[Rfam]
RNA sequence: AGAGGUUGCAAGUUCAAGGCCACGGCAGAAGCACUCACACUGCAGCCCUGUUGUAUUCUAAUGAAUUUGCAAAUUCUGCU
Numbered sequence: 001a002g003a004g005g006u007u008g009c010a011a012g013u014u015c016a017a018g019g020c021c022a023c024g025g026c027a028g029a030a031g032c033a034c035u036c037a038c039a040c041u042g043c044a045g046c047c048c049u050g051u052u053g054u055a056u057u058c059u060a061a062u063g064a065a066u067u068u069g070c071a072a073a074u075u076c077u078g079c080u
Base pairs, nucleotide, nucleotide: 018047019046020045024080025079026078027077028076029075030074031043032042033041052069053068055066056065057064058063
The record is an 80-nucleotide RNA sequence from Alligator sinensis, which matches "Mammalian CPEB3 ribozyme" in Rfam. Lineage of the source: Eukaryota > Tetrapoda > Amniota > Crocodylia > Alligator. Pairs were carried over by alignment from the consensus structure, which is taken from published work. Gene Ontology term of the family: RNA nuclease activity.